RNA sequence: CCUGCGGACCGGGCCCCUCUGACGACGCGUCGAUCGCGCCGUGAUGUCGGACCGCGUCG
Numbered sequence: 001c002c003u004g005c006g007g008a009c010c011g012g013g014c015c016c017c018u019c020u021g022a023c024g025a026c027g028c029g030u031c032g033a034u035c036g037c038g039c040c041g042u043g044a045u046g047u048c049g050g051a052c053c054g055c056g057u058c059g
Base pairs, nucleotide, nucleotide: 006053007052009050010049011048012047022042023041024040026038027037028036029035